[Rfam]
Shown here is a 154-nucleotide sequence from Cryptobacterium sp. CAG:338, a member of the family "Glycine riboswitch aptamer". Lineage of the source: Bacteria > Bacillati > Coriobacteriia > Eggerthellaceae > Cryptobacterium. The literature on the family includes a 2004 paper in Science by Mandal et al., "A glycine-dependent riboswitch that uses cooperative binding to control gene expression". It scores 57 bits against the family's covariance model.
RNA sequence: GAUGAGGUCUCUGGAGAAUCCCGCGAAAAGCGGGUGCCGAAGGGGCAAGGUGCAAAAGCACGACAGCUAACUUAGCUGACAGCAAUUCGUUUGUUGACGCUAUACCUGUCUGCACCGUACCGAAACUCUCAGGCAAAAGGACAGAGCACUGCCU
Numbered sequence: 001g002a003u004g005a006g007g008u009c010u011c012u013g014g015a016g017a018a019u020c021c022c023g024c025g026a027a028a029a030g031c032g033g034g035u036g037c038c039g040a041a042g043g044g045g046c047a048a049g050g051u052g053c054a055a056a057a058g059c060a061c062g063a064c065a066g067c068u069a070a071c072u073u074a075g076c077u078g079a080c081a082g083c084a085a086u087u088c089g090u091u092u093g094u095u096g097a098c099g100c101u102a103u104a105c106c107u108g109u110c111u112g113c114a115c116c117g118u119a120c121c122g123a124a125a126c127u128c129u130c131a132g133g134c135a136a137a138a139g140g141a142c143a144g145a146g147c148a149c150u151g152c153c154u
Stems, first nucleotide, its partner, number of pairs: 006149001009146005020034004036134003039130002043128003049121005